[Rfam]
RNA sequence: GGAUAACACGUUUUGCUAUUCUCAGCCAAUAACACAAUGACACGUGGAAUAACUUUUCUAUGUGUCAUUGUGUUAUUAGUUAGGGAUAGUAAAACAAUACUAUUC
Numbered sequence: 001g002g003a004u005a006a007c008a009c010g011u012u013u014u015g016c017u018a019u020u021c022u023c024a025g026c027c028a029a030u031a032a033c034a035c036a037a038u039g040a041c042a043c044g045u046g047g048a049a050u051a052a053c054u055u056u057u058c059u060a061u062g063u064g065u066c067a068u069u070g071u072g073u074u075a076u077u078a079g080u081u082a083g084g085g086a087u088a089g090u091a092a093a094a095c096a097a098u099a100c101u102a103u104u105c
Stems, first nucleotide, its partner, number of pairs: 002104004011094009021084002024081003028077022

Notes:
This 105-nucleotide sequence from Prunus armeniaca belongs to the Rfam family "MIR6274 microRNA precursor family". Pairs were carried over by alignment from the consensus structure, which was predicted with RNAalifold. The organism belongs to Prunus, within Eukaryota. A search with the family's covariance model found it, with a score of 81 bits.